The record is an 89-nucleotide sequence from Mikania micrantha, which matches "Small nucleolar RNA Z105" in Rfam.
Pairs were carried over by alignment from the consensus structure, which was predicted with CMfinder.
The match comes from Rfam's covariance-model search (47 bits).
[Rfam]
RNA sequence: GCGUAAUGAUGAUGAAAGUUGUUUGACAAUGUCUUCUGAAGCAUGAACAAUGCCAAGUGAUUGAUCAAAUAACCUCCUACUCAUUCUGA
Numbered sequence: 001g002c003g004u005a006a007u008g009a010u011g012a013u014g015a016a017a018g019u020u021g022u023u024u025g026a027c028a029a030u031g032u033c034u035u036c037u038g039a040a041g042c043a044u045g046a047a048c049a050a051u052g053c054c055a056a057g058u059g060a061u062u063g064a065u066c067a068a069a070u071a072a073c074c075u076c077c078u079a080c081u082c083a084u085u086c087u088g089a
Stems, first nucleotide, its partner, number of pairs: 006084004025065001